[Rfam]
RNA sequence: GACAAAAGGCUUGCGGUGGAUACCUAGGCACCCAGAGACGAAGAAGGGCGUGGCAAACGACGAAAUGCUUCGGGGAGCCGAAAAUAGGUAUAGAUCCGGAGAUUCCCGAAUAGGUUAACCUUCCAAACUGCCUGCUGAAUUCAGAAGCAGACAAGAGACAACCCGGCGAACUGAAACAUCUUAGUAGCCGGAGGAGGAAAAAGCAAAAGCGAUUCCCCUAGUAACGGCGAGUGAAACGGGAAGAGCCUAAACCGUGAAGACGGGGUUGUGGGAGAGUGAUGAGGGCUUCGUUUUACUAGGCGAAGCAGUUGAGUGCUGCACCCCAGAUGGUGAUAGUCCAGUAGCCGGAAGUACAGCUAGCUCACGCUCCAACCCAAGUAGCAUGGGGCACGCAAAAUCCCGUGUGAAUCAGCGAGGACCACCUUGUAAGGCUAAAUAUUCCUGAGUGACCGAUAGCGAAGCAGUACCGUGAGGGAAAGGUGAAAAGAACCCCCGUCGGGGAGUGAAAUAGAACAUGAAACCGCGAGCUCCCAAG
Numbered sequence: 001g002a003c004a005a006a007a008g009g010c011u012u013g014c015g016g017u018g019g020a021u022a023c024c025u026a027g028g029c030a031c032c033c034a035g036a037g038a039c040g041a042a043g044a045a046g047g048g049c050g051u052g053g054c055a056a057a058c059g060a061c062g063a064a065a066u067g068c069u070u071c072g073g074g075g076a077g078c079c080g081a082a083a084a085u086a087g088g089u090a091u092a093g094a095u096c097c098g099g100a101g102a103u104u105c106c107c108g109a110a111u112a113g114g115u116u117a118a119c120c121u122u123c124c125a126a127a128c129u130g131c132c133u134g135c136u137g138a139a140u141u142c143a144g145a146a147g148c149a150g151a152c153a154a155g156a157g158a159c160a161a162c163c164c165g166g167c168g169a170a171c172u173g174a175a176a177c178a179u180c181u182u183a184g185u186a187g188c189c190g191g192a193g194g195a196g197g198a199a200a201a202a203g204c205a206a207a208a209g210c211g212a213u214u215c216c217c218c219u220a221g222u223a224a225c226g227g228c229g230a231g232u233g234a235a236a237c238g239g240g241a242a243g244a245g246c247c248u249a250a251a252c253c254g255u256g257a258a259g260a261c262g263g264g265g266u267u268g269u270g271g272g273a274g275a276g277u278g279a280u281g282a283g284g285g286c287u288u289c290g291u292u293u294u295a296c297u298a299g300g301c302g303a304a305g306c307a308g309u310u311g312a313g314u315g316c317u318g319c320a321c322c323c324c325a326g327a328u329g330g331u332g333a334u335a336g337u338c339c340a341g342u343a344g345c346c347g348g349a350a351g352u353a354c355a356g357c358u359a360g361c362u363c364a365c366g367c368u369c370c371a372a373c374c375c376a377a378g379u380a381g382c383a384u385g386g387g388g389c390a391c392g393c394a395a396a397a398u399c400c401c402g403u404g405u406g407a408a409u410c411a412g413c414g415a416g417g418a419c420c421a422c423c424u425u426g427u428a429a430g431g432c433u434a435a436a437u438a439u440u441c442c443u444g445a446g447u448g449a450c451c452g453a454u455a456g457c458g459a460a461g462c463a464g465u466a467c468c469g470u471g472a473g474g475g476a477a478a479g480g481u482g483a484a485a486a487g488a489a490c491c492c493c494c495g496u497c498g499g500g501g502a503g504u505g506a507a508a509u510a511g512a513a514c515a516u517g518a519a520a521c522c523g524c525g526a527g528c529u530c531c532c533a534a535g
Stems, first nucleotide, its partner, number of pairs: 008529009023480002027451002029448003033444003036440002039157001046107003049062003068101007077089003112121003128155002130152001132150005162193001163191005173180002203210002213436001214241004224232002244433004252263004270375003274369005285362001287360002290357003294353004299346003305319005322326001328340003381405008412427005467474002490501004
This 535-nucleotide part of an RNA belongs to the Rfam family "Bacterial large subunit ribosomal RNA".
It scores 2499 bits against the family's covariance model.